[Rfam]
RNA sequence: AAUUAACUUUUUGGUGUCUUAUGAUGAAGCUUCAUAGGGCAGAUUCUGAGUUGAGAAAUAAAAUUUCUCUCCACUGAUCCUCUCUAUAUGCCAUCUGAAGACACUAUAUCUU
Numbered sequence: 001a002a003u004u005a006a007c008u009u010u011u012u013g014g015u016g017u018c019u020u021a022u023g024a025u026g027a028a029g030c031u032u033c034a035u036a037g038g039g040c041a042g043a044u045u046c047u048g049a050g051u052u053g054a055g056a057a058a059u060a061a062a063a064u065u066u067c068u069c070u071c072c073a074c075u076g077a078u079c080c081u082c083u084c085u086a087u088a089u090g091c092c093a094u095c096u097g098a099a100g101a102c103a104c105u106a107u108a109u110c111u112u
Base pairs, nucleotide, nucleotide: 013105014104015103016102017101018100019099029094033090034089035088037083038082039081042078045077046076048074050072053069054068055067056066057065
RNA: Small nucleolar RNA SNORD90